[Rfam]
RNA: ACEA small nucleolar RNA U3
Nucleotides: 201
Stems, first nucleotide, its partner, number of pairs: 003039001006035001008034004017028001019026002043067001045065003049061001051059001076200005095188005100182006109156002118145003123139001160173004
Number, partner (000 for none) and nucleotide at each position: 001000u002000c003039g004000a005000c006035u007000g008034u009033a010032c011031u012000c013000g014000a015000a016000c017028a018000g019026g020025a021000u022000c023000a024000c025020u026019u027000a028017u029000g030000u031011a032010g033009u034008g035006a036000u037000u038000u039003c040000c041000u042000u043067u044000c045065g046064u047063u048000c049061a050000c051059a052000a053000g054000a055000g056000u057000a058000c059051u060000c061049u062000u063047g064046a065045c066000a067043a068000a069000a070000c071000c072000c073000u074000a075000a076200a077199c078198c079197g080196u081000g082000a083000u084000g085000a086000u087000g088000a089000c090000g091000u092000a093000u094000a095188u096187a097186c098185c099184a100182c101181a102180u103179c104178c105177a106000c107000u108000c109156g110155g111000a112000g113000g114000u115000u116000u117000a118145g119144u120143c121000c122000a123139c124000u125000c126000c127000a128000u129000u130000a131000a132000c133000u134000u135000g136000u137000g138000u139123g140000u141000g142000c143120g144119a145118c146000u147000u148000c149000g150000a151000u152000g153000a154000g155110u156109u157000c158000a159000u160173c161172u162171c163170c164000u165000u166000g167000c168000u169000a170163g171162g172161a173160g174000u175000c176000u177105u178104g179103g180102g181101u182100g183000u184099u185098g186097g187096u188095a189000a190000u191000a192000c193000u194000g195000a196080g197079c198078g199077g200076u201000u